The family of this 393-nucleotide RNA from Tepidibacillus fermentans is "Bacterial RNase P class A". The match comes from Rfam's covariance-model search (298 bits). Pairs were carried over by alignment from the consensus structure, which is taken from published work.
Nucleotides: 393
Base pairs, nucleotide, nucleotide: 001389002388003387004386005385006384007383008382009381010380011378012321013320014319015318016317017316018315020040021039023037024036025035026034027033028032045376046375047374049373050372051371052370053369054224055223056222057221061258062257063256064255066220067219068218069217070216071085072084073083074082075081086100087098088097089096090095101215102214106213107212108209109208110207122156123155124152125151126150129147130146132144164182165181166180167179168178169177184205185204186203187202188201189200190199192197228278229277230276231275238269239268240267241266242265243264249263250262251261252260253259285304286303287302288301289300290299291298292297
Number, partner (000 for none) and nucleotide at each position: 001389g002388a003387a004386g005385u006384a007383a008382g009381c010380u011378g012321g013320g014319u015318a016317a017316u018315c019000g020040c021039u022000g023037g024036u025035g026034g027033a028032u029000u030000u031000c032028a033027u034026c035025c036024a037023c038000g039021a040020g041000a042000g043000g044000a045376a046375a047374g048000u049373c050372c051371g052370a053369g054224c055223u056222c057221c058000a059000a060000a061258g062257g063256g064255c065000a066220g067219g068218g069217u070216g071085c072084u073083g074082g075081a076000u077000a078000a079000c080000g081075u082074c083073c084072a085071g086100u087098c088097a089096g090095a091000g092000c093000g094000a095090u096089c097088u098087g099000a100086a101215g102214g103000a104000u105000a106213g107212u108209g109208c110207c111000a112000c113000a114000g115000a116000a117000a118000u119000g120000g121000a122156c123155c124152g125151c126150c127000a128000a129147u130146g131000g132144c133000c134000a135000u136000c137000a138000u139000a140000u141000g142000a143000u144132g145000g146130u147129a148000c149000a150126g151125g152124c153000a154000a155123g156122g157000g158000u159000g160000c161000a162000a163000c164182c165181g166180u167179g168178g169177u170000g171000u172000a173000a174000g175000a176000g177169a178168c179167c180166a181165c182164g183000a184205g185204g186203g187202a188201a189200u190199a191000u192197g193000g194000c195000g196000a197192c198000u199190u200189a201188u202187u203186c204185c205184c206000u207110g208109g209108u210000a211000a212107a213106c214102c215101c216070c217069a218068c219067c220066u221057g222056g223055a224054g225000c226000a227000a228278g229277a230276c231275a232000a233000g234000a235000u236000a237000g238269g239268a240267g241266c242265g243264c244000a245000u246000a247000u248000a249263g250262g251261a252260g253259u254000g255064g256063c257062c258061c259253g260252c261251u262250c263249c264243g265242c266241g267240u268239u269238c270000g271000g272000g273000u274000u275231u276230g277229u278228c279000g280000c281000u282000u283000g284000a285304g286303c287302c288301a289300u290299a291298u292297a293000g294000u295000a296000a297292u298291a299290u300289a301288u302287g303286g304285u305000c306000u307000a308000g309000a310000u311000a312000g313000a314000u315018g316017a317016u318015u319014a320013c321012c322000g323000c324000u325000u326000c327000a328000a329000c330000a331000g332000u333000g334000g335000g336000a337000g338000c339000u340000a341000a342000g343000a344000u345000g346000c347000g348000u349000u350000u351000a352000c353000c354000a355000c356000u357000a358000g359000a360000a361000g362000u363000a364000c365000a366000a367000a368000a369053c370052u371051c372050g373049g374047c375046u376045u377000a378011u379000a380010g381009g382008c383007u384006u385005a386004c387003u388002u389001u390000c391000c392000a393000a

Rfam classes the family as a ribozyme.